[Rfam]
Shown here is an 87-nucleotide RNA sequence from Eptesicus fuscus, a member of the family "mir-342 microRNA precursor family". A reference for the family is Afanasyeva et al. (2008), "New miRNAs cloned from neuroblastoma", BMC Genomics. Rfam links the family to the GO terms cellular response to leukemia inhibitory factor, cellular response to lipopolysaccharide and miRNA-mediated post-transcriptional gene silencing.
Nucleotides: 087
Stems, first nucleotide, its partner, number of pairs: 004082005010076002013073006021063006029057005
Number, partner (000 for none) and nucleotide at each position: 001000g002000c003000g004082c005081a006080a007079g008078g009000u010076g011075a012000g013073g014072g015071g016070u017069g018068c019000u020000a021063u022062c023061u024060g025059u026058g027000a028000u029057u030056g031055a032054g033053g034000g035000a036000c037000a038000u039000g040000g041000c042000g043000c044000a045000u046000a047000g048000a049000a050000u051000u052000g053033u054032c055031u056030c057029a058026c059025a060024c061023a062022g063021a064000a065000a066000u067000c068018g069017c070016a071015c072014c073013c074000g075011u076010c077000a078008c079007c080006u081005u082004g083000g084000c085000c086000c087000a
Source information
Pairs were carried over by alignment from the consensus structure, which was predicted with RNAalifold.